The family of this 67-nucleotide RNA from Natronoarchaeum philippinense is "S15-Halobacteria ribosomal protein leader". A reference for the family is Eckert and Weinberg (2020), "Discovery of 20 novel ribosomal leader candidates in bacteria and archaea", BMC Microbiol. Pairs were carried over by alignment from the consensus structure, which is taken from published work. The match comes from Rfam's covariance-model search (77 bits). The organism belongs to Natronoarchaeum, within Archaea.
[Rfam]
RNA sequence: UCGGGAACAGCACGGCCGUAAAUCUGACUCGCCGGGGAUUUCUCCCGGCUCGGGAUUGCGGAAGUGC
Numbered sequence: 001u002c003g004g005g006a007a008c009a010g011c012a013c014g015g016c017c018g019u020a021a022a023u024c025u026g027a028c029u030c031g032c033c034g035g036g037g038a039u040u041u042c043u044c045c046c047g048g049c050u051c052g053g054g055a056u057u058g059c060g061g062a063a064g065u066g067c
Stems, first nucleotide, its partner, number of pairs: 010067004016061006024054002031049007